The record is a 79-nucleotide RNA sequence from Loxodonta africana, which matches "mir-105 microRNA precursor family" in Rfam. Rfam links the family to the GO terms biological_process, cellular_component and RISC complex. The literature on the family includes a 2002 paper in Genes Dev by Mourelatos et al., "miRNPs: a novel class of ribonucleoproteins containing numerous microRNAs".

Nucleotides: 079
Base pairs, nucleotide, nucleotide: 004076005075008072009071010070011069012068014067015066017064018063019062020061021060022059023058024057025053026052032050033049034048035047037046038045039044
Number, partner (000 for none) and nucleotide at each position: 001000u002000g003000u004076g005075c006000c007000u008072u009071g010070u011069g012068g013000u014067c015066a016000a017064a018063u019062g020061c021060u022059c023058a024057g025053u026052c027000g028000u029000a030000u031000g032050g033049u034048g035047g036000c037046u038045g039044c040000u041000c042000a043000u044039g045038c046037a047035c048034u049033a050032c051000g052026g053025a054000u055000g056000u057024u058023u059022g060021a061020g062019c063018a064017u065000g066015u067014g068012c069011c070010a071009c072008g073000u074000u075005g076004u077000c078000u079000a